[Rfam]
RNA sequence: GGAAGGCUUCUUGCUCAAAUGAGUAUUCCAUUGAGAAAGAUGAUGCUCCGUGCUCUCCCAGAGUACUGCGGGCUUUAAAAUGAAAUACUCAUUUGGGCAAGAUGUCUUGC
Number, nucleotide and partner (000 for none) at each position: 001g000002g000003a000004a107005g106006g105007c104008u000009u000010c101011u100012u099013g098014c097015u096016c095017a094018a093019a092020u091021g090022a089023g088024u087025a086026u085027u084028c000029c082030a081031u000032u000033g000034a000035g000036a000037a000038a000039g000040a000041u000042g000043a000044u000045g000046c000047u000048c000049c000050g000051u000052g000053c000054u000055c000056u000057c000058c000059c000060a000061g000062a000063g000064u000065a000066c000067u000068g000069c000070g000071g000072g000073c000074u000075u000076u000077a000078a000079a000080a000081u030082g029083a000084a027085a026086u025087a024088c023089u022090c021091a020092u019093u018094u017095g016096g015097g014098c013099a012100a011101g010102a000103u000104g007105u006106c005107u004108u000109g000110c000